[Rfam]
RNA sequence: GGUCAAGAGCGCCAGCGUCAAGUCCGGGCUUGCUGGCCGGCAACCCUCCUCCGCGGCGGGGUGCCCCCGGUUGUGACCAGGCCGCGUCCGGAUGAGCCGGAGCGGCAAGUGCGGACC
Numbered sequence: 001g002g003u004c005a006a007g008a009g010c011g012c013c014a015g016c017g018u019c020a021a022g023u024c025c026g027g028g029c030u031u032g033c034u035g036g037c038c039g040g041c042a043a044c045c046c047u048c049c050u051c052c053g054c055g056g057c058g059g060g061g062u063g064c065c066c067c068c069g070g071u072u073g074u075g076a077c078c079a080g081g082c083c084g085c086g087u088c089c090g091g092a093u094g095a096g097c098c099g100g101a102g103c104g105g106c107a108a109g110u111g112c113g114g115a116c117c
Stems, first nucleotide, its partner, number of pairs: 001078004009038001011037006021030002039065003044061003048056002081106005087101005
A member of the RNA family "SAM (S-adenosyl methionine) riboswitch aptamer" from Parafrankia flexibilis, 117 nucleotides long. The organism belongs to Parafrankia, within Bacteria. A search with the family's covariance model found it, with a score of 98 bits.